The record is a 62-nucleotide RNA from Propithecus coquereli, which matches "U7 small nuclear RNA" in Rfam. Taxonomically the source falls in Propithecus (Eukaryota, Deuterostomia, Craniata, Mammalia).

RNA sequence: UAGUGUUACAGCUCUUUUAGAAUUUGUCUGGCAGAUAUUCUGGUCCUCUCUGGAAGACCCCC
Numbered sequence: 001u002a003g004u005g006u007u008a009c010a011g012c013u014c015u016u017u018u019a020g021a022a023u024u025u026g027u028c029u030g031g032c033a034g035a036u037a038u039u040c041u042g043g044u045c046c047u048c049u050c051u052g053g054a055a056g057a058c059c060c061c062c
Stems, first nucleotide, its partner, number of pairs: 034059001036057001038055006